The family of this 321-nucleotide RNA from Nothocercus julius is "Small Cajal body-specific RNA 7".
RNA sequence: UGGAAGUGAUGAAAUAGAGAUAAUUGGAUGUCUCUCUGAAUGGAGUGUGUAUGGUAAAUAACAUUUGAAUUAAACUUCUGGGGGUGUGGGGGAAGUGUGUGUGUGUGUGUGUGUGUGUGUGGUAUAUAAAAGGCUAUAAACUGGGGGCACUGAUAAUGAAGUGCUGAUUCCGGAGUGCAUCUGAGGCAUGUUGUUAAAUUCUGGGGUGUUGCUUUUCAACAUUGCCGAUGAUUAGAGCCCAAAACAAGCUCACCAGGCUAGUCUAGGCAUCUUAAUCUCUAACAGGUUCAUUAGUGAAAAUGAUCCUGUGAUCUGAUCCAA
Numbered sequence: 001u002g003g004a005a006g007u008g009a010u011g012a013a014a015u016a017g018a019g020a021u022a023a024u025u026g027g028a029u030g031u032c033u034c035u036c037u038g039a040a041u042g043g044a045g046u047g048u049g050u051a052u053g054g055u056a057a058a059u060a061a062c063a064u065u066u067g068a069a070u071u072a073a074a075c076u077u078c079u080g081g082g083g084g085u086g087u088g089g090g091g092g093a094a095g096u097g098u099g100u101g102u103g104u105g106u107g108u109g110u111g112u113g114u115g116u117g118u119g120u121g122g123u124a125u126a127u128a129a130a131a132g133g134c135u136a137u138a139a140a141c142u143g144g145g146g147g148c149a150c151u152g153a154u155a156a157u158g159a160a161g162u163g164c165u166g167a168u169u170c171c172g173g174a175g176u177g178c179a180u181c182u183g184a185g186g187c188a189u190g191u192u193g194u195u196a197a198a199u200u201c202u203g204g205g206g207u208g209u210u211g212c213u214u215u216u217c218a219a220c221a222u223u224g225c226c227g228a229u230g231a232u233u234a235g236a237g238c239c240c241a242a243a244a245c246a247a248g249c250u251c252a253c254c255a256g257g258c259u260a261g262u263c264u265a266g267g268c269a270u271c272u273u274a275a276u277c278u279c280u281a282a283c284a285g286g287u288u289c290a291u292u293a294g295u296g297a298a299a300a301u302g303a304u305c306c307u308g309u310g311a312u313c314u315g316a317u318c319c320a321a
Base pairs, nucleotide, nucleotide: 001320002319003318004317189221190220191219192218193217197210198209199208201205
By type it is a small Cajal body RNA. Rfam links the family to the GO terms nucleolus and RNA processing. Lineage of the source: Eukaryota > Metazoa > Sauria > Tinamidae > Nothocercus.